[Rfam]
RNA sequence: ACCUGGACUAAGCCCAGGAAUAUGGUGCCUCAGAGCUGGAUGCUUAACCAAGACAAACUCUCCUUCUCUCCAAUACUGUGCCAACUCAUGAUUCUCAUGACCUGUGCUUGAAGAAAUCCGGACUAGGAGUCAGAGGACCUCUGACUUUGCCAAUCAUGGCUAA
Numbered sequence: 001a002c003c004u005g006g007a008c009u010a011a012g013c014c015c016a017g018g019a020a021u022a023u024g025g026u027g028c029c030u031c032a033g034a035g036c037u038g039g040a041u042g043c044u045u046a047a048c049c050a051a052g053a054c055a056a057a058c059u060c061u062c063c064u065u066c067u068c069u070c071c072a073a074u075a076c077u078g079u080g081c082c083a084a085c086u087c088a089u090g091a092u093u094c095u096c097a098u099g100a101c102c103u104g105u106g107c108u109u110g111a112a113g114a115a116a117u118c119c120g121g122a123c124u125a126g127g128a129g130u131c132a133g134a135g136g137a138c139c140u141c142u143g144a145c146u147u148u149g150c151c152a153a154u155c156a157u158g159g160c161u162a163a
Base pairs, nucleotide, nucleotide: 011161012160013159017155018154025148027146030144031143032142033141034140035139043127044126045125046124051064052063065116067114068113069112086100087099088098089097090096091095101136102135103134105132106131108129109128
The record is a 163-nucleotide sequence from Equus caballus, which matches "Hovlinc ribozyme (hominin vlincRNA-located)" in Rfam. The family's consensus secondary structure is taken from published work. Rfam's curators write: Hovlinc is a recently evolved class of self-cleaving ribozyme found in a very long non coding RNA (vlincRNA) in hominins, including humans (genus Homo), and chimpanzees and bonobos (genus Pan), but missing in gorillas (genus Gorilla). Lineage of the source: Eukaryota > Metazoa > Chordata > Boreoeutheria > Equus. Gene Ontology term of the family: catalytic activity. A reference for the family is Chen et al. (2021), "Hovlinc is a recently evolved class of ribozyme found in human lncRNA", Nat Chem Biol.